The record is a 77-nucleotide sequence from Rhinopithecus roxellana, which matches "mir-320 microRNA precursor family" in Rfam.
RNA sequence: GUAUCAAUAAGCCUUCUCUUCCCAGUUCUUCUUGGAGUCAGGAAAAGCUGGCUUGAGAGGCGCAGAAAAGAAAAAAG
Numbered sequence: 001g002u003a004u005c006a007a008u009a010a011g012c013c014u015u016c017u018c019u020u021c022c023c024a025g026u027u028c029u030u031c032u033u034g035g036a037g038u039c040a041g042g043a044a045a046a047g048c049u050g051g052c053u054u055g056a057g058a059g060g061c062g063c064a065g066a067a068a069a070g071a072a073a074a075a076a077g
Base pairs, nucleotide, nucleotide: 014059015058016057017056018055022051023050024049025048029044030043031042032041033040034039

On this family, see Berezikov et al., Genome Res 2006: "Many novel mammalian microRNA candidates identified by extensive cloning and RAKE analysis". Taxonomically the source falls in Rhinopithecus (Eukaryota, Teleostomi, Boreoeutheria, Cercopithecoidea). The family has 38 seed sequences and 659 matches in Rfam 15.1. Rfam links the family to the GO terms long-term synaptic potentiation, positive regulation of stem cell proliferation and negative regulation of gene expression.